[Rfam]
RNA sequence: UUCAUGAAGCAAUGUAAGUCGCUCUGGAUAAGAGCGUCUGCUAAAUGACUAAAA
Numbered sequence: 001u002u003c004a005u006g007a008a009g010c011a012a013u014g015u016a017a018g019u020c021g022c023u024c025u026g027g028a029u030a031a032g033a034g035c036g037u038c039u040g041c042u043a044a045a046u047g048a049c050u051a052a053a054a
Stems, first nucleotide, its partner, number of pairs: 013043001014041003020036006
Description
A member of the RNA family "UnaL2 LINE 3' element" from Coregonus sp. 'balchen', 54 nucleotides long. Rfam classes the family as a cis-regulatory element. The organism belongs to Coregonus, within Eukaryota.